[Rfam]
RNA sequence: CUUCAACUUUAACAUGGAAGUGCUUUCUGUGACUUUUUAAGUAAGUGCUUCCAUGUUUUAGUAGGAG
Numbered sequence: 001c002u003u004c005a006a007c008u009u010u011a012a013c014a015u016g017g018a019a020g021u022g023c024u025u026u027c028u029g030u031g032a033c034u035u036u037u038u039a040a041g042u043a044a045g046u047g048c049u050u051c052c053a054u055g056u057u058u059u060a061g062u063a064g065g066a067g
Stems, first nucleotide, its partner, number of pairs: 001067003006062003011057015027041002
RNA: mir-302 microRNA precursor family
Organism: Cebus imitator